Gut-1 RNA: a 95-nucleotide RNA sequence from Clostridium sp. CAG:413.
Pairs were carried over by alignment from the consensus structure, which is taken from published work.
It scores 61 bits against the family's covariance model.
The family has 38 seed sequences and 51 matches in Rfam 15.1.

RNA sequence: CAGUGAAAUUUGUUCCGUCGGAACGAGUGAAAUAUCCUCAAUGUGAAAUAUUGCUUCGCAAAUGUGAAAUACGUCUGCGGCGUGUGAAAUCGCUG
Numbered sequence: 001c002a003g004u005g006a007a008a009u010u011u012g013u014u015c016c017g018u019c020g021g022a023a024c025g026a027g028u029g030a031a032a033u034a035u036c037c038u039c040a041a042u043g044u045g046a047a048a049u050a051u052u053g054c055u056u057c058g059c060a061a062a063u064g065u066g067a068a069a070u071a072c073g074u075c076u077g078c079g080g081c082g083u084g085u086g087a088a089a090u091c092g093c094u095g
Stems, first nucleotide, its partner, number of pairs: 008028008048065004052060002069085007